[Rfam]
RNA: U4atac minor spliceosomal RNA
Organism: Pogonomyrmex barbatus
RNA sequence: GCUAUCCUUGUCUUUGGGGAGCAAAGUGCUCAAUGAUCGUUUAGUGAGAGUGCUGUUGCUGAAACCCAUUAUAAUUUAACUCGCAUCCGUGAUAAUAUCAUGAGAUGCAAUUUUUGGAUAG
Number, nucleotide and partner (000 for none) at each position: 001g000002c000003u000004a000005u019006c018007c017008u016009u000010g000011u000012c000013u000014u000015u000016g008017g007018g006019g005020a000021g059022c058023a057024a056025a054026g053027u052028g051029c050030u049031c048032a000033a000034u000035g000036a000037u000038c044039g000040u000041u000042u000043a000044g038045u000046g000047a000048g031049a030050g029051u028052g027053c026054u025055g000056u024057u023058g022059c021060u000061g000062a000063a000064a000065c000066c000067c000068a000069u000070u000071a000072u000073a000074a000075u000076u000077u000078a000079a000080c000081u000082c000083g108084c107085a106086u105087c104088c102089g101090u100091g099092a098093u097094a000095a000096u000097a093098u092099c091100a090101u089102g088103a000104g087105a086106u085107g084108c083109a000110a000111u000112u000113u000114u000115u000116g000117g000118a000119u000120a000121g000